The family of this 91-nucleotide RNA from Edwardsiella hoshinae is "OmrA-B family". On this family, see Argaman et al., Curr Biol 2001: "Novel small RNA-encoding genes in the intergenic regions of Escherichia coli".
RNA sequence: CCCAGAGGUAUUGAUUGGUGAUGUGAGGAUCUUCCCGCCGGAAGAUCGACCAACAAUUACACCGACCUACGCAGAUGCGUAGGUUUUUUUU
Numbered sequence: 001c002c003c004a005g006a007g008g009u010a011u012u013g014a015u016u017g018g019u020g021a022u023g024u025g026a027g028g029a030u031c032u033u034c035c036c037g038c039c040g041g042a043a044g045a046u047c048g049a050c051c052a053a054c055a056a057u058u059a060c061a062c063c064g065a066c067c068u069a070c071g072c073a074g075a076u077g078c079g080u081a082g083g084u085u086u087u088u089u090u091u
Stems, first nucleotide, its partner, number of pairs: 016064005022053001029046006065084008